[Rfam]
RNA sequence: ACCACUGCAGACUUAAUCUGGACACUAUAAAAGAAAAUUGUGCAUGUGAAAAUAUGCCCAUUAUAAAUUUGUAGUGUUCAGAUUGAGUUUAGAAUGGUUG
Numbered sequence: 001a002c003c004a005c006u007g008c009a010g011a012c013u014u015a016a017u018c019u020g021g022a023c024a025c026u027a028u029a030a031a032a033g034a035a036a037a038u039u040g041u042g043c044a045u046g047u048g049a050a051a052a053u054a055u056g057c058c059c060a061u062u063a064u065a066a067a068u069u070u071g072u073a074g075u076g077u078u079c080a081g082a083u084u085g086a087g088u089u090u091a092g093a094a095u096g097g098u099u100g
Stems, first nucleotide, its partner, number of pairs: 001098004009090023039060002043056005
Annotation
MIR1878 microRNA precursor family: a 100-nucleotide sequence from Oryza sativa. Rfam's curators put it in the seed alignment.